Rfam assigns this 71-nucleotide part of an RNA to the family "Bacterial large subunit ribosomal RNA". It scores 927 bits against the family's covariance model.
[Rfam]
Nucleotides: 071
Base pairs, nucleotide, nucleotide: 004070005069006068007067008066009065010064011063012062013061014060015058017027018026019025031055032054033053036051037050038049039048
Number, partner (000 for none) and nucleotide at each position: 001000g002000a003000u004070c005069u006068u007067a008066c009065c010064a011063u012062g013061g014060c015058c016000a017027g018026g019025u020000g021000u022000a023000a024000g025019a026018c027017c028000g029000a030000a031055c032054c033053a034000a035000c036051u037050a038049c039048u040000g041000u042000u043000g044000c045000a046000a047000u048039a049038g050037u051036a052000c053033u054032g055031g056000a057000u058015g059000a060014g061013c062012u063011g064010u065009g066008g067007u068006a069005g070004g071000g